[Rfam]
Shown here is a 202-nucleotide RNA sequence from Youngiibacter fragilis, a member of the family "raiA RNA". The match comes from Rfam's covariance-model search (181 bits).

RNA sequence: GAAAGUUAAGUUUGUGGUUGAAAGUCCAAGCCAGUCGCAGGCAAAAGGAUCCACGUAAGUCAGGCCAAUGGCCCGACAAUCAUGGUGCGGUUUAGAUGUUAGUCCUGCCAGAAAUGAGAGGGUUAGUAGUGAGAGGUUGAGUCCGGGUAGCAAAAGCUCCAGCAGGCGAGUGUGGGGUCAAAGACCAGGUCAAUUAACUUUC
Numbered sequence: 001g002a003a004a005g006u007u008a009a010g011u012u013u014g015u016g017g018u019u020g021a022a023a024g025u026c027c028a029a030g031c032c033a034g035u036c037g038c039a040g041g042c043a044a045a046a047g048g049a050u051c052c053a054c055g056u057a058a059g060u061c062a063g064g065c066c067a068a069u070g071g072c073c074c075g076a077c078a079a080u081c082a083u084g085g086u087g088c089g090g091u092u093u094a095g096a097u098g099u100u101a102g103u104c105c106u107g108c109c110a111g112a113a114a115u116g117a118g119a120g121g122g123u124u125a126g127u128a129g130u131g132a133g134a135g136g137u138u139g140a141g142u143c144c145g146g147g148u149a150g151c152a153a154a155a156g157c158u159c160c161a162g163c164a165g166g167c168g169a170g171u172g173u174g175g176g177g178u179c180a181a182a183g184a185c186c187a188g189g190u191c192a193a194u195u196a197a198c199u200u201u202c
Stems, first nucleotide, its partner, number of pairs: 001202009012193003015187005028173001030171001031041001033092007050085002055080001059077003063073003083180001104166005109116002120159004129151002135144002